[Rfam]
RNA sequence: CAAACGGCUCCCUUAGGAGCCACCAAUUUUACAAAAGUCUCUGAUU
Numbered sequence: 001c002a003a004a005c006g007g008c009u010c011c012c013u014u015a016g017g018a019g020c021c022a023c024c025a026a027u028u029u030u031a032c033a034a035a036a037g038u039c040u041c042u043g044a045u046u
Stems, first nucleotide, its partner, number of pairs: 006021006